[Rfam]
RNA sequence: GAUCCACUGUGAUGAUUAAUCAAAUUAUACAUGUUAGACUAUGGAGAUGGCUUCAACCAUCCAUGAAUAACACACAUACUCUGAGUGGAUC
Numbered sequence: 001g002a003u004c005c006a007c008u009g010u011g012a013u014g015a016u017u018a019a020u021c022a023a024a025u026u027a028u029a030c031a032u033g034u035u036a037g038a039c040u041a042u043g044g045a046g047a048u049g050g051c052u053u054c055a056a057c058c059a060u061c062c063a064u065g066a067a068u069a070a071c072a073c074a075c076a077u078a079c080u081c082u083g084a085g086u087g088g089a090u091c
Base pairs, nucleotide, nucleotide: 001091002090003089004088005087006086007085046061047060048059049058
RNA: Small nucleolar RNA R64/Z200 family